[Rfam]
RNA: sok antitoxin (CssrC)
Organism: Chimaeribacter arupi
RNA sequence: GGGUGCCUGGACAUGUCUGUUCCGGGCAGUCCGGCGCAGACAAAGAAAAGGCCCCACUCAAUGUAAAUCAAGUGAGGCCAAUCCCGAUGCAUAGGAACAUCAGGUUAGCCUCUUACCCGCCGCAAGGCAAGGAAUUGGAGGCCAGUAUG
Numbered sequence: 001g002g003g004u005g006c007c008u009g010g011a012c013a014u015g016u017c018u019g020u021u022c023c024g025g026g027c028a029g030u031c032c033g034g035c036g037c038a039g040a041c042a043a044a045g046a047a048a049a050g051g052c053c054c055c056a057c058u059c060a061a062u063g064u065a066a067a068u069c070a071a072g073u074g075a076g077g078c079c080a081a082u083c084c085c086g087a088u089g090c091a092u093a094g095g096a097a098c099a100u101c102a103g104g105u106u107a108g109c110c111u112c113u114u115a116c117c118c119g120c121c122g123c124a125a126g127g128c129a130a131g132g133a134a135u136u137g138g139a140g141g142c143c144a145g146u147a148u149g
Stems, first nucleotide, its partner, number of pairs: 001055003005052004012045001014042007022034002026030001056073003060068001062067001074112005081106001083104002086101004116141002120137001
Dot-bracket structure: (((.((((...(.(((((((.((..(...)..)).)))))))..)...)))))))(((.(.(....))..)))(((((..(.((.((((........)))).)).).)))))...((..(................)..))........